About this RNA
This 179-nucleotide sequence from Steroidobacter agaridevorans belongs to the Rfam family "Manganese Mn2+ riboswitch aptamer (yybP-ykoY)". Pairs were carried over by alignment from the consensus structure. NCBI's taxonomy places the organism under Bacteria, Pseudomonadati, Pseudomonadota, Steroidobacterales, Steroidobacter. A search with the family's covariance model found it, with a score of 91 bits. Rfam describes the family as follows. This RNA was originally discovered in E. coli during a large scale screen and was named SraF. The family was later found to exist upstream of related families of protein genes in many bacteria, including the the yybP and ykoK genes in B. subtilis.

RNA sequence: CCGCCCGUCAUUGGGGAGUAGCCGCCUUACGCAACGUAAGGAGCCGACGUCAACAGACUUGGUCGAAGACCAUGGCGUCGGCGGCAUCAGCUUGGCGAGACCUUUGACUUUGCGACCACAGCCGGGGCCGGCGGUGGACGUGGAGUCAUGGGUAUUUGCGCCGCUGGCCCCGGGAGUCU
Number, nucleotide and partner (000 for none) at each position: 001c000002c000003g000004c000005c000006c000007g000008u000009c000010a000011u000012u000013g000014g000015g000016g000017a000018g000019u000020a000021g000022c000023c000024g000025c041026c040027u039028u000029a000030c000031g000032c000033a000034a000035c000036g000037u000038a000039a027040g026041g025042a000043g082044c081045c080046g079047a078048c077049g076050u075051c074052a073053a000054c000055a000056g000057a000058c000059u000060u072061g071062g070063u069064c068065g000066a000067a000068g064069a063070c062071c061072a060073u052074g051075g050076c049077g048078u047079c046080g045081g044082c043083g178084g177085c176086a000087u174088c173089a000090g000091c000092u000093u000094g000095g000096c000097g000098a000099g000100a000101c000102c000103u000104u000105u000106g000107a000108c000109u000110u000111u000112g000113c000114g000115a000116c000117c000118a000119c000120a000121g000122c000123c000124g000125g000126g000127g000128c000129c000130g000131g000132c000133g000134g000135u000136g000137g000138a000139c000140g000141u000142g000143g000144a000145g000146u000147c000148a000149u000150g000151g000152g000153u000154a000155u000156u000157u000158g000159c000160g000161c000162c000163g000164c000165u000166g000167g000168c000169c000170c000171c000172g000173g088174g087175a000176g085177u084178c083179u000